This 187-nucleotide RNA from Candidatus Pelagibacter sp. IMCC9063 belongs to the Rfam family "permuted transfer-messenger RNA". About the family: Bacterial tmRNA, also known as 10Sa RNA or SsrA, is named for its dual tRNA and mRNA-like properties. Its role is to liberate the mRNA from a stalled ribosome. It scores 128 bits against the family's covariance model.

RNA sequence: AACGAUAAACGAAAUUCGUAAUAAACAUUUUGGACCAGGGGGCGGUACCCUGCACCUCCACCAUUUACAACUCAUGGGGGUGAAAUAGGCUCGACAGAUGUCUAAAAGCUUUUCUUUCGUUCAGUAUUGUUCCGCUGUGACGGGCUACAUUUUAAAUGCUAACGAAAGUUACGCUAUUGCUGCUUAA
Numbered sequence: 001a002a003c004g005a006u007a008a009a010c011g012a013a014a015u016u017c018g019u020a021a022u023a024a025a026c027a028u029u030u031u032g033g034a035c036c037a038g039g040g041g042g043c044g045g046u047a048c049c050c051u052g053c054a055c056c057u058c059c060a061c062c063a064u065u066u067a068c069a070a071c072u073c074a075u076g077g078g079g080g081u082g083a084a085a086u087a088g089g090c091u092c093g094a095c096a097g098a099u100g101u102c103u104a105a106a107a108g109c110u111u112u113u114c115u116u117u118c119g120u121u122c123a124g125u126a127u128u129g130u131u132c133c134g135c136u137g138u139g140a141c142g143g144g145c146u147a148c149a150u151u152u153u154a155a156a157u158g159c160u161a162a163c164g165a166a167a168g169u170u171a172c173g174c175u176a177u178u179g180c181u182g183c184u185u186a187a
Base pairs, nucleotide, nucleotide: 001121002120003119004118005117014111017108026100027099028098030097031096032095036052037051038050039049040048053082054081055080056079057078058077059076122137123136124135125134